[Rfam]
Shown here is a 72-nucleotide RNA sequence from Peromyscus maniculatus, a member of the family "mir-344 microRNA precursor family". A reference for the family is Linsen et al. (2010), "Small RNA expression and strain specificity in the rat", BMC Genomics.
RNA sequence: UUACCAGUCAGGCUCAGGCUAUAUAGUCCAAUACACAGUUGGUCCUGGGUAUAACCAAAGCCCGACUCUAUA
Numbered sequence: 001u002u003a004c005c006a007g008u009c010a011g012g013c014u015c016a017g018g019c020u021a022u023a024u025a026g027u028c029c030a031a032u033a034c035a036c037a038g039u040u041g042g043u044c045c046u047g048g049g050u051a052u053a054a055c056c057a058a059a060g061c062c063c064g065a066c067u068c069u070a071u072a
Stems, first nucleotide, its partner, number of pairs: 007066003011062004017056002020053004028042005